The record is a 353-nucleotide RNA sequence from Bifidobacterium animalis, which matches "Bacterial RNase P class A" in Rfam. The family's RNA type in Rfam is ribozyme. A search with the family's covariance model found it, with a score of 289 bits. Rfam links the family to the GO terms ribonuclease P activity, dimeric ribonuclease P complex and tRNA processing.

[Rfam]
RNA sequence: CGAGACCUCUUGAUGGCCGCGGCCACUUUGUGGCUGAGGAACUUCCGGGCUCCACAGAGCACGAUGGCGGAUAACGUCCGCCCAGGGUGACCUGAGAGAUAGCGCAGCAGAGAACAGACCGCCUGCCUUCGGGCCGGUAAGGGUGAAACCGCGGUGCAAGAGACCACCGGGCAACUGGUAACAGGAGCCGCAUGGCAAGCCUCAUCGGGAGCAAGGCCAAGCAGAAGGCUAUAGAGUUGCUCGCUCUGCCUUCGGGUAGGCUGCUAGAGCCUGACGGCGACGUCAGGUCGAGAUGGAUGGCCAUCCAUGCCUUCACGGCAUGACAGAACCCGGGGUAUAAGAGGUCUCACUCC
Numbered sequence: 001c002g003a004g005a006c007c008u009c010u011u012g013a014u015g016g017c018c019g020c021g022g023c024c025a026c027u028u029u030g031u032g033g034c035u036g037a038g039g040a041a042c043u044u045c046c047g048g049g050c051u052c053c054a055c056a057g058a059g060c061a062c063g064a065u066g067g068c069g070g071a072u073a074a075c076g077u078c079c080g081c082c083c084a085g086g087g088u089g090a091c092c093u094g095a096g097a098g099a100u101a102g103c104g105c106a107g108c109a110g111a112g113a114a115c116a117g118a119c120c121g122c123c124u125g126c127c128u129u130c131g132g133g134c135c136g137g138u139a140a141g142g143g144u145g146a147a148a149c150c151g152c153g154g155u156g157c158a159a160g161a162g163a164c165c166a167c168c169g170g171g172c173a174a175c176u177g178g179u180a181a182c183a184g185g186a187g188c189c190g191c192a193u194g195g196c197a198a199g200c201c202u203c204a205u206c207g208g209g210a211g212c213a214a215g216g217c218c219a220a221g222c223a224g225a226a227g228g229c230u231a232u233a234g235a236g237u238u239g240c241u242c243g244c245u246c247u248g249c250c251u252u253c254g255g256g257u258a259g260g261c262u263g264c265u266a267g268a269g270c271c272u273g274a275c276g277g278c279g280a281c282g283u284c285a286g287g288u289c290g291a292g293a294u295g296g297a298u299g300g301c302c303a304u305c306c307a308u309g310c311c312u313u314c315a316c317g318g319c320a321u322g323a324c325a326g327a328a329c330c331c332g333g334g335g336u337a338u339a340a341g342a343g344g345u346c347u348c349a350c351u352c353c
Stems, first nucleotide, its partner, number of pairs: 002348009012305007020036007041336003045333005050211004057242004062207005067081005082096001083094004097202002102200002104196002119142002121138003125134003151167001153165003169191001170189003175184003215262004224253006233247005269288008